[Rfam]
RNA: Acido-Lenti-1 RNA
Organism: Caulifigura coniformis
RNA sequence: CCGUGGGCUUACGCCCACGGCUAACCAAUACCGCCCCUCUCGGGGCU
Dot-bracket structure: ((((((((....))))))))............(((((....))))).